This 67-nucleotide RNA sequence from Halalkalibacter nanhaiisediminis belongs to the Rfam family "Bacillaceae-1 RNA". Rfam 15.1 lists 5,721 matches to the family in 247 species.

RNA sequence: AUUAAAGGACACUCGGCUAAGAACACUCACGUCGUGUUCGUAACGCCGAGUACCUACAUCCUGUAGG
Numbered sequence: 001a002u003u004a005a006a007g008g009a010c011a012c013u014c015g016g017c018u019a020a021g022a023a024c025a026c027u028c029a030c031g032u033c034g035u036g037u038u039c040g041u042a043a044c045g046c047c048g049a050g051u052a053c054c055u056a057c058a059u060c061c062u063g064u065a066g067g
Stems, first nucleotide, its partner, number of pairs: 011051007026040001029037002053067005
It scores 58 bits against the family's covariance model. Pairs were carried over by alignment from the consensus structure, which is taken from published work. The organism belongs to Halalkalibacter, within Bacteria. Rfam classes the family as a small RNA.